[Rfam]
This 178-nucleotide RNA sequence from Neobacillus vireti belongs to the Rfam family "Lysine riboswitch aptamer". Pairs were carried over by alignment from the consensus structure, which is taken from published work. A search with the family's covariance model found it, with a score of 130 bits.
RNA sequence: AGUGAAGGUAGAGGUGCGAGCUUCAAGAGUAGUGGUUCUGAGAAGGAUGAGCUUCUGAGAAGAAUCAUGAAAGGGAAGGUUCGCCGAAGUAAAGGAGAUCUCAUUUCUUGCUUUGCUGGUCCUGUGUUGAAUAAAUACCGGAUUGUCAAGACGUCUGUCUUGGAGAGCUAUCUUACAU
Numbered sequence: 001a002g003u004g005a006a007g008g009u010a011g012a013g014g015u016g017c018g019a020g021c022u023u024c025a026a027g028a029g030u031a032g033u034g035g036u037u038c039u040g041a042g043a044a045g046g047a048u049g050a051g052c053u054u055c056u057g058a059g060a061a062g063a064a065u066c067a068u069g070a071a072a073g074g075g076a077a078g079g080u081u082c083g084c085c086g087a088a089g090u091a092a093a094g095g096a097g098a099u100c101u102c103a104u105u106u107c108u109u110g111c112u113u114u115g116c117u118g119g120u121c122c123u124g125u126g127u128u129g130a131a132u133a134a135a136u137a138c139c140g141g142a143u144u145g146u147c148a149a150g151a152c153g154u155c156u157g158u159c160u161u162g163g164a165g166a167g168c169u170a171u172c173u174u175a176c177a178u
Stems, first nucleotide, its partner, number of pairs: 006173006016084006022077003032068008088117007096109002118144005124138005146163007